[Rfam]
RNA sequence: AUCACUUCUUGGCCUUUUGGCUAAGAUCAAGUGUAGUAUCUGUUCUUAUCAGUUUAAUAUAUGAUACAUCCUCUAUCUGAGGACAAUAUAUUAAAUGGAUUUUUGGAGCUAGGAGUUAGAAUAGGAGCUUGCUCCAUCCACUCCACGCACCGACCUGGUAUUGCAGUACCUCGAGGAGUGGAGCACCUGCU
Numbered sequence: 001a002u003c004a005c006u007u008c009u010u011g012g013c014c015u016u017u018u019g020g021c022u023a024a025g026a027u028c029a030a031g032u033g034u035a036g037u038a039u040c041u042g043u044u045c046u047u048a049u050c051a052g053u054u055u056a057a058u059a060u061a062u063g064a065u066a067c068a069u070c071c072u073c074u075a076u077c078u079g080a081g082g083a084c085a086a087u088a089u090a091u092u093a094a095a096u097g098g099a100u101u102u103u104u105g106g107a108g109c110u111a112g113g114a115g116u117u118a119g120a121a122u123a124g125g126a127g128c129u130u131g132c133u134c135c136a137u138c139c140a141c142u143c144c145a146c147g148c149a150c151c152g153a154c155c156u157g158g159u160a161u162u163g164c165a166g167u168a169c170c171u172c173g174a175g176g177a178g179u180g181g182a183g184c185a186c187c188u189g190c191u
Base pairs, nucleotide, nucleotide: 007026008025009024011022012021013020014019047066048065049064050063051062069083070082071081072080073079112144113143114142115141116140119137124135125134126133127132147184148183150181151180152179154176155175156174158172

U2 spliceosomal RNA: a 191-nucleotide sequence from Jaculus jaculus. U2 is a small nuclear RNA (snRNA) component of the spliceosome (involved in pre-mRNA splicing). Complementary binding between U2 snRNA (in an area lying towards the 5' end but 3' to hairpin I) and the branchpoint sequence (BPS) of the intron results the bulging out of an unpaired adenosine, on the BPS, which initiates a nucleophilic attack at the intronic 5' splice site, thus starting the first of two transesterification reactions that mediate splicing. It scores 170 bits against the family's covariance model. The organism belongs to Jaculus, within Eukaryota. Rfam links the family to the GO terms U2 snRNP, mRNA branch site recognition and pre-mRNA branch point binding. The family's consensus secondary structure is taken from published work.